[Rfam]
RNA sequence: UGUCGCUUCUACUAACUGUUUCAUACUUAUCUUUCGCCUUUUACUAAAGAUAACUGAGUUGGAGAAUUAACAGCGACACAAAAAAUUUUUGGAGGGUUCAUUCGGACCUG
Numbered sequence: 001u002g003u004c005g006c007u008u009c010u011a012c013u014a015a016c017u018g019u020u021u022c023a024u025a026c027u028u029a030u031c032u033u034u035c036g037c038c039u040u041u042u043a044c045u046a047a048a049g050a051u052a053a054c055u056g057a058g059u060u061g062g063a064g065a066a067u068u069a070a071c072a073g074c075g076a077c078a079c080a081a082a083a084a085a086u087u088u089u090u091g092g093a094g095g096g097u098u099c100a101u102u103c104g105g106a107c108c109u110g
Stems, first nucleotide, its partner, number of pairs: 003076004007066004012062006027053008094109006